[Rfam]
Record summary
This 74-nucleotide sequence from Drosophila grimshawi belongs to the Rfam family "mir-306 microRNA precursor family".

RNA sequence: CUGCUCAGGUACUUAGUGACUCUCAAUUCAACAUUGUAUUGCACGCCUUUGAGGGUCGCUCUGUGCCUGUGUUG
Numbered sequence: 001c002u003g004c005u006c007a008g009g010u011a012c013u014u015a016g017u018g019a020c021u022c023u024c025a026a027u028u029c030a031a032c033a034u035u036g037u038a039u040u041g042c043a044c045g046c047c048u049u050u051g052a053g054g055g056u057c058g059c060u061c062u063g064u065g066c067c068u069g070u071g072u073u074g
Stems, first nucleotide, its partner, number of pairs: 001074001003072002006069007015060011028043001
The organism belongs to Hawaiian Drosophila, within Eukaryota. On this family, see Aravin et al., Dev Cell 2003: "The small RNA profile during Drosophila melanogaster development".